[Rfam]
RNA: MIR168 microRNA precursor family
Organism: Lupinus albus
RNA sequence: CACCGCGCGGUCUCUAAUUCGCUUGGUGCAGGUCGGGAACCGCUGCUGCUACUUUCGACCGGAAUGAGUUUCGAUUGUCGGCGGCGAAUUGGAUCCCGCCUUGCAUCAACUGAAUCCGAGGCCGCCGUGGUU
Numbered sequence: 001c002a003c004c005g006c007g008c009g010g011u012c013u014c015u016a017a018u019u020c021g022c023u024u025g026g027u028g029c030a031g032g033u034c035g036g037g038a039a040c041c042g043c044u045g046c047u048g049c050u051a052c053u054u055u056c057g058a059c060c061g062g063a064a065u066g067a068g069u070u071u072c073g074a075u076u077g078u079c080g081g082c083g084g085c086g087a088a089u090u091g092g093a094u095c096c097c098g099c100c101u102u103g104c105a106u107c108a109a110c111u112g113a114a115u116c117c118g119a120g121g122c123c124g125c126c127g128u129g130g131u132u
Stems, first nucleotide, its partner, number of pairs: 013119002017115004023109010034098005040092002